[Rfam]
RNA sequence: AUACCCCAUGAUGCUCAGGUCCGCCGCAUCUCCUGGGUCGUGGGGUCGGUCGGUUGGAGUGCACUAAACGGUUCCUCGUACCGUCUGCAACUCCGACCGACCCCCAU
Numbered sequence: 001a002u003a004c005c006c007c008a009u010g011a012u013g014c015u016c017a018g019g020u021c022c023g024c025c026g027c028a029u030c031u032c033c034u035g036g037g038u039c040g041u042g043g044g045g046u047c048g049g050u051c052g053g054u055u056g057g058a059g060u061g062c063a064c065u066a067a068a069c070g071g072u073u074c075c076u077c078g079u080a081c082c083g084u085c086u087g088c089a090a091c092u093c094c095g096a097c098c099g100a101c102c103c104c105c106a107u
Base pairs, nucleotide, nucleotide: 003046004045005044006043007042008041009040010039014037015036016035017034018033019032048102049101050100051099052098053097054096055095056094057093058092
The record is a 107-nucleotide sequence from Agrobacterium sp. AGB01, which matches "EcpR1" in Rfam. Pairs were carried over by alignment from the consensus structure, which was predicted with WAR. Taxonomically the source falls in Agrobacterium (Bacteria, Pseudomonadota, Hyphomicrobiales, Rhizobiaceae). Perviously named SmelC291, SmrC10, or Sra33. It scores 98 bits against the family's covariance model. Rfam classes the family as a small RNA.